RNA sequence: GAAAUGCGAACCAAGCAGCGGUGGAAACCGUGUGAGACUUGGAGCGAACGCCCGCAAGAGCGUUCUGCA
Numbered sequence: 001g002a003a004a005u006g007c008g009a010a011c012c013a014a015g016c017a018g019c020g021g022u023g024g025a026a027a028c029c030g031u032g033u034g035a036g037a038c039u040u041g042g043a044g045c046g047a048a049c050g051c052c053c054g055c056a057a058g059a060g061c062g063u064u065c066u067g068c069a
Stems, first nucleotide, its partner, number of pairs: 011042005018031005046065006053058001
RNA: Transposase-2 RNA
Organism: Bifidobacterium samirii